Rfam assigns this 72-nucleotide RNA sequence from Alligator mississippiensis to the family "Mammalian CPEB3 ribozyme". Pairs were carried over by alignment from the consensus structure, which is taken from published work.
RNA sequence: ACACCCUUCAAAGUCACAGCAGAAGUGGUCACAGCAUGGCCUGUCAGAUUCAGCGAAUCUGUGAAUUCUGCU
Number, nucleotide and partner (000 for none) at each position: 001a000002c000003a000004c000005c000006c000007u000008u000009c000010a000011a000012a000013g040014u039015c038016a000017c000018a072019g071020c070021a069022g068023a067024a066025g037026u036027g035028g000029u000030c000031a000032c000033a000034g000035c027036a026037u025038g015039g014040c013041c000042u000043g000044u000045c061046a060047g059048a058049u057050u056051c055052a000053g000054c000055g051056a050057a049058u048059c047060u046061g045062u000063g000064a000065a000066u024067u023068c022069u021070g020071c019072u018